[Rfam]
RNA sequence: GUUCCAUAAUCGCUGAAUUCUGAUAAGGAACGGGGGAACCAAAGACGCAGCCAUUCCAAAAAAUGGUGAUCGUACGGGGUGAAUCCCACUUGCAAAAAGCUUUGUUUGCAAUGGGGUAGGGCAAUCUCGCUGCCCGAAUCCGACAGCUAACCUCGUAAGCGUAGAAUGAGAGAGGAU
Numbered sequence: 001g002u003u004c005c006a007u008a009a010u011c012g013c014u015g016a017a018u019u020c021u022g023a024u025a026a027g028g029a030a031c032g033g034g035g036g037a038a039c040c041a042a043a044g045a046c047g048c049a050g051c052c053a054u055u056c057c058a059a060a061a062a063a064u065g066g067u068g069a070u071c072g073u074a075c076g077g078g079g080u081g082a083a084u085c086c087c088a089c090u091u092g093c094a095a096a097a098a099g100c101u102u103u104g105u106u107u108g109c110a111a112u113g114g115g116g117u118a119g120g121g122c123a124a125u126c127u128c129g130c131u132g133c134c135c136g137a138a139u140c141c142g143a144c145a146g147c148u149a150a151c152c153u154c155g156u157a158a159g160c161g162u163a164g165a166a167u168g169a170g171a172g173a174g175g176a177u
Stems, first nucleotide, its partner, number of pairs: 011161004018029003030156006040076001077141003085116003119135004
About this RNA: This 177-nucleotide RNA from Paenibacillus ferrarius belongs to the Rfam family "c-di-AMP riboswitch aptamer (ydaO/yuaA leader)".